[Rfam]
RNA: Bacterial large subunit ribosomal RNA, nucleotides 627 to 856
Organism: Loigolactobacillus rennini
RNA sequence: GAGUUACGUUAAGCGGCAAGGUUAAGGCGGAAAGCUGGAGCCAUAGCGAAAGCGAGUCUGAAACGGGCGCAUUAGUCGUUUGAGGUAGACCCGAAACCAAGUGACCUACCCAUGUCCAGAUUGAAGGUGUGGUGAAACGCACUGGAGGAUCGCACCCAUGUAUGUUGAAAAAUGCUGGGAUGAGGUGUGGGUAGCGGUGAAAUUCCAAACGAACUUGGAGAUAGCUGGUU
Numbered sequence: 001g002a003g004u005u006a007c008g009u010u011a012a013g014c015g016g017c018a019a020g021g022u023u024a025a026g027g028c029g030g031a032a033a034g035c036u037g038g039a040g041c042c043a044u045a046g047c048g049a050a051a052g053c054g055a056g057u058c059u060g061a062a063a064c065g066g067g068c069g070c071a072u073u074a075g076u077c078g079u080u081u082g083a084g085g086u087a088g089a090c091c092c093g094a095a096a097c098c099a100a101g102u103g104a105c106c107u108a109c110c111c112a113u114g115u116c117c118a119g120a121u122u123g124a125a126g127g128u129g130u131g132g133u134g135a136a137a138c139g140c141a142c143u144g145g146a147g148g149a150u151c152g153c154a155c156c157c158a159u160g161u162a163u164g165u166u167g168a169a170a171a172a173u174g175c176u177g178g179g180a181u182g183a184g185g186u187g188u189g190g191g192u193a194g195c196g197g198u199g200a201a202a203u204u205c206c207a208a209a210c211g212a213a214c215u216u217g218g219a220g221a222u223a224g225c226u227g228g229u230u
Stems, first nucleotide, its partner, number of pairs: 005087003009083009020042004026036003046053002056068004090228002093225001097218006106194011117182001119151004126143006155179003160175004196206002